[Rfam]
RNA sequence: GAGAGCGAGGCAGUUAAGACUUGCAGUGAUGUUUAGUUAAAAUCUUUUCAUGAACAUCACUUUAAGUCUGUACUGCUUCUC
Number, nucleotide and partner (000 for none) at each position: 001g000002a000003g000004a000005g000006c000007g000008a000009g000010g000011c000012a000013g000014u000015u000016a000017a069018g068019a067020c066021u065022u064023g063024c000025a000026g060027u059028g058029a057030u056031g055032u054033u053034u052035a051036g000037u000038u000039a000040a000041a000042a000043u000044c000045u000046u000047u000048u000049c000050a000051u035052g034053a033054a032055c031056a030057u029058c028059a027060c026061u000062u000063u023064a022065a021066g020067u019068c018069u017070g000071u000072a000073c000074u000075g000076c000077u000078u000079c000080u000081c000

The family of this 81-nucleotide RNA sequence from Xenopus tropicalis is "mir-499 microRNA precursor family". Rfam links the family to the GO terms miRNA-mediated post-transcriptional gene silencing and RISC complex. The literature on the family includes a 2008 paper in Genome Res by Murchison et al., "Conservation of small RNA pathways in platypus". Taxonomically the source falls in Silurana (Eukaryota, Metazoa, Bilateria, Chordata).